[Rfam]
RNA sequence: GUCGGGGCAGGAAUGACAGAGUUAUUGUCCAACGGAACGGAAUGUGAACGUUGGAAGGAGGCGAUGGCCGCUUUGUCAUCCCGCAUUCACCGCA
Numbered sequence: 001g002u003c004g005g006g007g008c009a010g011g012a013a014u015g016a017c018a019g020a021g022u023u024a025u026u027g028u029c030c031a032a033c034g035g036a037a038c039g040g041a042a043u044g045u046g047a048a049c050g051u052u053g054g055a056a057g058g059a060g061g062c063g064a065u066g067g068c069c070g071c072u073u074u075g076u077c078a079u080c081c082c083g084c085a086u087u088c089a090c091c092g093c094a
Stems, first nucleotide, its partner, number of pairs: 003092003010082002013079007021071002025056002029054006040088005060069003
A member of the RNA family "THF (Tetrahydrofolate) riboswitch aptamer" from Limosilactobacillus secaliphilus, 94 nucleotides long. Lineage of the source: Bacteria > Bacillati > Bacillota > Lactobacillaceae > Limosilactobacillus. Pairs were carried over by alignment from the consensus structure, which is taken from published work. For this family Rfam cites "A eubacterial riboswitch class that senses the coenzyme tetrahydrofolate" (Ames et al., Chem Biol, 2010). It scores 45 bits against the family's covariance model.